[Rfam]
RNA sequence: UUGCCGGUGUAAGUCCGGUCCGGGUAGUUGCCAGGAGGCCCGGUAGCAGACUGGCGGCUUGGUUUGGAAACGGAUCAGGUGGAAGCCCAGUGUCGAAAGUCCUUGAAAGGGGAAGCGACUGAGCGGUCCGUAGCAUGA
Numbered sequence: 001u002u003g004c005c006g007g008u009g010u011a012a013g014u015c016c017g018g019u020c021c022g023g024g025u026a027g028u029u030g031c032c033a034g035g036a037g038g039c040c041c042g043g044u045a046g047c048a049g050a051c052u053g054g055c056g057g058c059u060u061g062g063u064u065u066g067g068a069a070a071c072g073g074a075u076c077a078g079g080u081g082g083a084a085g086c087c088c089a090g091u092g093u094c095g096a097a098a099g100u101c102c103u104u105g106a107a108a109g110g111g112g113a114a115g116c117g118a119c120u121g122a123g124c125g126g127u128c129c130g131u132a133g134c135a136u137g138a
Stems, first nucleotide, its partner, number of pairs: 020043005050091005055082001057080004064073001066071001101112003115131003

This 138-nucleotide RNA from Mycolicibacterium doricum belongs to the Rfam family "Group II catalytic intron D1-D4-4". Pairs were carried over by alignment from the consensus structure. The source organism's lineage runs through Bacteria, Bacillati, Actinomycetota, Mycobacteriaceae and Mycobacterium (subgen. Mycolicibacterium). About the family: Group II introns are found in rRNA, tRNA and mRNA of organelles in fungi, plants and protists, and also in mRNA in bacteria. On this family, see Bonen and Vogel, Trends Genet 2001: "The ins and outs of group II introns".